A member of the RNA family "tRNA" from Drosophila lummei, 72 nucleotides long.
For this family Rfam cites "The tertiary structure of tRNA and the development of the genetic code" (Hou, Trends Biochem Sci, 1993).
The base pairs follow the family's consensus structure, which is taken from published work.
Transfer RNA (tRNA) molecules are approximately 80 nucleotides in length.
It is one of the family's seed sequences.
[Rfam]
RNA sequence: CAAUUUAAAGCUUAUUAAGUAAAGCAUUUCAUUUACAUUGAAAAGAUUUUUGUGCAAAUCAAUAUAAAUUGA
Numbered sequence: 001c002a003a004u005u006u007a008a009a010g011c012u013u014a015u016u017a018a019g020u021a022a023a024g025c026a027u028u029u030c031a032u033u034u035a036c037a038u039u040g041a042a043a044a045g046a047u048u049u050u051u052g053u054g055c056a057a058a059u060c061a062a063u064a065u066a067a068a069u070u071g072a
Base pairs, nucleotide, nucleotide: 001071002070003069004068005067006066007065010025011024012023013022027043028042029041030040031039048064050062051061052060